Background
Shown here is a 256-nucleotide sequence from Plasmodiophora brassicae, a member of the family "RNase MRP". The match comes from Rfam's covariance-model search (81 bits). It is annotated as a ribozyme.
RNA sequence: GCCCGUGCCGAAGGUUUGCAUACGGGUAAUUCAGACGAACCUGGGUACAUCCCGGGUACCAUGGCCCGUGGGAAAGUCCCCGGAUCACGAGGCAGAGAUGUCAUCCGUUAACGGAGGCGUCGGCACGGUCGCCGUCAUCGUGGCAAAGACACGAGCCCUGACGGCCCGGCUGAUUGUUCAUCAUAGCAAAGUUAUGCAAGCGCCGCCCGGUGUCAUGCCGGACCGGUUCCACAACGGGGCUUACUCUCAGUGCUGG
Numbered sequence: 001g002c003c004c005g006u007g008c009c010g011a012a013g014g015u016u017u018g019c020a021u022a023c024g025g026g027u028a029a030u031u032c033a034g035a036c037g038a039a040c041c042u043g044g045g046u047a048c049a050u051c052c053c054g055g056g057u058a059c060c061a062u063g064g065c066c067c068g069u070g071g072g073a074a075a076g077u078c079c080c081c082g083g084a085u086c087a088c089g090a091g092g093c094a095g096a097g098a099u100g101u102c103a104u105c106c107g108u109u110a111a112c113g114g115a116g117g118c119g120u121c122g123g124c125a126c127g128g129u130c131g132c133c134g135u136c137a138u139c140g141u142g143g144c145a146a147a148g149a150c151a152c153g154a155g156c157c158c159u160g161a162c163g164g165c166c167c168g169g170c171u172g173a174u175u176g177u178u179c180a181u182c183a184u185a186g187c188a189a190a191g192u193u194a195u196g197c198a199a200g201c202g203c204c205g206c207c208c209g210g211u212g213u214c215a216u217g218c219c220g221g222a223c224c225g226g227u228u229c230c231a232c233a234a235c236g237g238g239g240c241u242u243a244c245u246c247u248c249a250g251u252g253c254u255g256g
Stems, first nucleotide, its partner, number of pairs: 002256002005253004010248002014201006021070007037048001039046002074242003078239004091102004104115004117174001123170002126168003133163004142157003203226003208221001